[Rfam]
RNA: Small nucleolar RNA SNORD2
RNA sequence: UAGCGCAAUGAUGGUAACCAUCUUUCGGGUCCGAAAAGAAUGACGGAAAAAGCUUUGCUGAGCGCUA
Numbered sequence: 001u002a003g004c005g006c007a008a009u010g011a012u013g014g015u016a017a018c019c020a021u022c023u024u025u026c027g028g029g030u031c032c033g034a035a036a037a038g039a040a041u042g043a044c045g046g047a048a049a050a051a052g053c054u055u056u057g058c059u060g061a062g063c064g065c066u067a
Base pairs, nucleotide, nucleotide: 001067002066003065004064005063006062
Dot-bracket structure: ((((((.......................................................))))))